[Rfam]
RNA: Small nucleolar RNA SNORA79
Organism: Elachura formosa
RNA sequence: CGACCCGCGUUCCCCCCGUCGCCGCCAGCUGCGGGCGCUCGGGGUUUUAGCGGUGUCGCAGAGCAAGCGGCGGCUCCUUCUUCACCCGGCGGAGCAGACCGGGCUUCGUGGCUCCGCCGGAUUUUGAGGGGUCGCACAAAA
Numbered sequence: 001c002g003a004c005c006c007g008c009g010u011u012c013c014c015c016c017c018g019u020c021g022c023c024g025c026c027a028g029c030u031g032c033g034g035g036c037g038c039u040c041g042g043g044g045u046u047u048u049a050g051c052g053g054u055g056u057c058g059c060a061g062a063g064c065a066a067g068c069g070g071c072g073g074c075u076c077c078u079u080c081u082u083c084a085c086c087c088g089g090c091g092g093a094g095c096a097g098a099c100c101g102g103g104c105u106u107c108g109u110g111g112c113u114c115c116g117c118c119g120g121a122u123u124u125u126g127a128g129g130g131g132u133c134g135c136a137c138a139a140a141a
Stems, first nucleotide, its partner, number of pairs: 001058004005053004014044005020037004072133006086120010